[Rfam]
RNA sequence: CCGCCCGUCGCUCCUACCGAUUGGGUGUGCUGGUGAAGUGUUCGGAUUGGCCCUGAUGAUUUUGGGAAACCUGCUCGGGGUCGAGAAGUUCAUUAAACCCUCCCACCUAGAGGAAGGAGAAGUCGUAACAAGGUUUCCGUAGGUGAACCUGCGGAAGGAUCAUUG
Numbered sequence: 001c002c003g004c005c006c007g008u009c010g011c012u013c014c015u016a017c018c019g020a021u022u023g024g025g026u027g028u029g030c031u032g033g034u035g036a037a038g039u040g041u042u043c044g045g046a047u048u049g050g051c052c053c054u055g056a057u058g059a060u061u062u063u064g065g066g067a068a069a070c071c072u073g074c075u076c077g078g079g080g081u082c083g084a085g086a087a088g089u090u091c092a093u094u095a096a097a098c099c100c101u102c103c104c105a106c107c108u109a110g111a112g113g114a115a116g117g118a119g120a121a122g123u124c125g126u127a128a129c130a131a132g133g134u135u136u137c138c139g140u141a142g143g144u145g146a147a148c149c150u151g152c153g154g155a156a157g158g159a160u161c162a163u164u165g
Base pairs, nucleotide, nucleotide: 001132003129006125007124009122011119012118013117014116015115017113018112021109023108024107025106026105027104029102032099033098034097037094038093039092040091043088047084048083049082050081051080052079053078054077055076056075058070060068061067134157135156136155137154138153139152140151141150142149143148
RNA: Eukaryotic small subunit ribosomal RNA, nucleotides 1629 to 1793
Organism: Volvox reticuliferus